[Rfam]
RNA sequence: AAGUGUUACAGCUCUUUUGGAAUUUAUUUAGCAGGUUUUCUGGUCUUUACUGGAAAGCCUCU
Number, nucleotide and partner (000 for none) at each position: 001a000002a000003g000004u000005g000006u000007u000008a000009c000010a000011g000012c000013u000014c000015u000016u000017u000018u000019g000020g000021a000022a000023u000024u000025u000026a000027u000028u000029u000030a000031g000032c000033a000034g059035g058036u057037u056038u055039u054040c053041u052042g051043g050044u049045c000046u000047u000048u000049a044050c043051u042052g041053g040054a039055a038056a037057g036058c035059c034060u000061c000062u000
RNA: U7 small nuclear RNA
Organism: Macaca fascicularis